[Rfam]
RNA: PhotoRC-II RNA
RNA sequence: UCACCUUUUCAUUCUGUCGCCUCACCAAGACUAAACAGCGACAUUAAAUAACAGUCUUUCAUACCUCUGCUUAGGGUGCAGAGGAAUAGUAACUCCA
Numbered sequence: 001u002c003a004c005c006u007u008u009u010c011a012u013u014c015u016g017u018c019g020c021c022u023c024a025c026c027a028a029g030a031c032u033a034a035a036c037a038g039c040g041a042c043a044u045u046a047a048a049u050a051a052c053a054g055u056c057u058u059u060c061a062u063a064c065c066u067c068u069g070c071u072u073a074g075g076g077u078g079c080a081g082a083g084g085a086a087u088a089g090u091a092a093c094u095c096c097a
Base pairs, nucleotide, nucleotide: 016042017041018040019039020038027058028057029056030055031054064084065083066082067081068080069079070078